[Rfam]
RNA sequence: AAUCCAAGUGAUGAAAGAAUAACUGCAACAAUAUGAAUUGGAAUUAAGAUUCCGUGAUUCUUAGUAUUUAAGUCUCUGAUGGUU
Numbered sequence: 001a002a003u004c005c006a007a008g009u010g011a012u013g014a015a016a017g018a019a020u021a022a023c024u025g026c027a028a029c030a031a032u033a034u035g036a037a038u039u040g041g042a043a044u045u046a047a048g049a050u051u052c053c054g055u056g057a058u059u060c061u062u063a064g065u066a067u068u069u070a071a072g073u074c075u076c077u078g079a080u081g082g083u084u
Stems, first nucleotide, its partner, number of pairs: 001084002004082003040053005
RNA: Small nucleolar RNA Z199